[Rfam]
RNA sequence: GGUUUAAUUACCCAAGUUUGAGAUAAUUGAAUGUUUCGGCCCGGUGUUUUGGCUGCUGUGGCUUGAAAUGAAAUUUUGGAAUGUCCUGUAUUUGCGGGACAAC
Number, nucleotide and partner (000 for none) at each position: 001g000002g000003u031004u030005u029006a028007a027008u026009u025010a024011c000012c022013c000014a000015a000016g000017u000018u000019u000020g000021a000022g012023a000024u010025a009026a008027u007028u006029g005030a004031a003032u000033g000034u068035u067036u066037c065038g000039g062040c061041c060042c000043g000044g000045u000046g000047u000048u000049u000050u000051g000052g000053c000054u000055g000056c000057u000058g000059u000060g041061g040062c039063u000064u000065g037066a036067a035068a034069u000070g000071a000072a000073a000074u000075u000076u000077u000078g000079g000080a000081a000082u000083g100084u099085c098086c097087u096088g095089u094090a000091u000092u000093u000094g089095c088096g087097g086098g085099a084100c083101a000102a000103c000

SL1 RNA: a 103-nucleotide sequence from Onchocerca flexuosa. Rfam describes the family as follows. This family represents the SL1 RNA. SL1 is commonly located in the spacer region between 5S-rRNA genes where it is involved in trans-splicing. Trans-splicing is a form of RNA processing. The acquisition of a spliced leader from a SL RNA is a intra-molecular reaction which precisely joins exons derived from separately transcribed RNAs. Clan: SL clan.